[Rfam]
RNA sequence: UAAGGCAGGGAUCGACCUCCGUCAGCGUUAUACGCCCACGGAGGCAUUUGUG
Numbered sequence: 001u002a003a004g005g006c007a008g009g010g011a012u013c014g015a016c017c018u019c020c021g022u023c024a025g026c027g028u029u030a031u032a033c034g035c036c037c038a039c040g041g042a043g044g045c046a047u048u049u050g051u052g
Stems, first nucleotide, its partner, number of pairs: 016044007025035004